Rfam assigns this 79-nucleotide RNA sequence from Drosophila albomicans to the family "mir-971 microRNA precursor family".
Taxonomically the source falls in Drosophila (Eukaryota, Pterygota, Endopterygota, Drosophila).
Rfam 15.1 lists 118 matches to the family in 116 species.
RNA sequence: CGUCACGUACGCUGUGAAAAGUAACCAUCAAAGCAUCGAUUUUAAGCGCUUGGUGUUACUUCUUACAGUGAAUGCGAUG
Numbered sequence: 001c002g003u004c005a006c007g008u009a010c011g012c013u014g015u016g017a018a019a020a021g022u023a024a025c026c027a028u029c030a031a032a033g034c035a036u037c038g039a040u041u042u043u044a045a046g047c048g049c050u051u052g053g054u055g056u057u058a059c060u061u062c063u064u065a066c067a068g069u070g071a072a073u074g075c076g077a078u079g
Stems, first nucleotide, its partner, number of pairs: 006074003010070004015065003026055005032050003